[Rfam]
RNA sequence: AAAUAAGAUAGGGGCGCAAAGUCUAAGAGUACUGUCUGGAGGCACGACUGCCGGGGAAUGACAGGAAAGGAUUCUUUGCCGAAGGAGAAUGGCAUGUCGAUCCGUUUUUCUGGCCAUACGUUUAAUAAGCGUAUGACUGUCACGCUUGCGUGGAGCACUAUCCUUAAA
Numbered sequence: 001a002a003a004u005a006a007g008a009u010a011g012g013g014g015c016g017c018a019a020a021g022u023c024u025a026a027g028a029g030u031a032c033u034g035u036c037u038g039g040a041g042g043c044a045c046g047a048c049u050g051c052c053g054g055g056g057a058a059u060g061a062c063a064g065g066a067a068a069g070g071a072u073u074c075u076u077u078g079c080c081g082a083a084g085g086a087g088a089a090u091g092g093c094a095u096g097u098c099g100a101u102c103c104g105u106u107u108u109u110c111u112g113g114c115c116a117u118a119c120g121u122u123u124a125a126u127a128a129g130c131g132u133a134u135g136a137c138u139g140u141c142a143c144g145c146u147u148g149c150g151u152g153g154a155g156c157a158c159u160a161u162c163c164u165u166a167a168a
Stems, first nucleotide, its partner, number of pairs: 007162005016079006024071001032064005083111010112138002115135008140153005
Dot-bracket structure: ......(((((....((((((..(.......(((((.......................)))))......)..))))))...((((((((((.........))))))))))((.((((((((.....)))))))).)).(((((....)))))....)))))......

A member of the RNA family "Lysine riboswitch aptamer" from Alkalibacterium kapii, 168 nucleotides long. Rfam links the family to the GO term lysine biosynthetic process. The source organism's lineage runs through Bacteria, Bacillota, Bacilli, Carnobacteriaceae and Alkalibacterium. The literature on the family includes a 2003 paper in Cell by Mandal et al., "Riboswitches Control Fundamental Biochemical Pathways in Bacillus subtilis and Other Bacteria". The base pairs follow the family's consensus structure, which is taken from published work.